[Rfam]
RNA sequence: AGUUGUGUCCAGCGGGAGCUCGGUAGCACCGGGCUGAGAGGGCGGCUGAGGCUGCCGCCGACCGCAAGUACCUGAUCCGGGUAAUGCCGGCGGAGGGAGGUUGGCAUGCUCUCGU
Numbered sequence: 001a002g003u004u005g006u007g008u009c010c011a012g013c014g015g016g017a018g019c020u021c022g023g024u025a026g027c028a029c030c031g032g033g034c035u036g037a038g039a040g041g042g043c044g045g046c047u048g049a050g051g052c053u054g055c056c057g058c059c060g061a062c063c064g065c066a067a068g069u070a071c072c073u074g075a076u077c078c079g080g081g082u083a084a085u086g087c088c089g090g091c092g093g094a095g096g097g098a099g100g101u102u103g104g105c106a107u108g109c110u111c112u113c114g115u
Stems, first nucleotide, its partner, number of pairs: 006103002009100002012065004018034005041059005071096003077090004
TPP riboswitch aptamer (THI element): a 115-nucleotide RNA from a Streptosporangiales bacterium. The family's consensus secondary structure is taken from published work. NCBI's taxonomy places the organism under Bacteria, Bacillati, Actinomycetota, Actinomycetes, Streptosporangiales. It scores 60 bits against the family's covariance model.